[Rfam]
RNA: mir-219 microRNA precursor family
RNA sequence: UCAGGCCCUGAUUGUCCAAACGCAAUUCUUGUUUUUUAAUUUAUCAAGGGCUGUGUAUGGACAUCAUUGCUUGU
Numbered sequence: 001u002c003a004g005g006c007c008c009u010g011a012u013u014g015u016c017c018a019a020a021c022g023c024a025a026u027u028c029u030u031g032u033u034u035u036u037u038a039a040u041u042u043a044u045c046a047a048g049g050g051c052u053g054u055g056u057a058u059g060g061a062c063a064u065c066a067u068u069g070c071u072u073g074u
Stems, first nucleotide, its partner, number of pairs: 002073005009066004014062005021055004026050006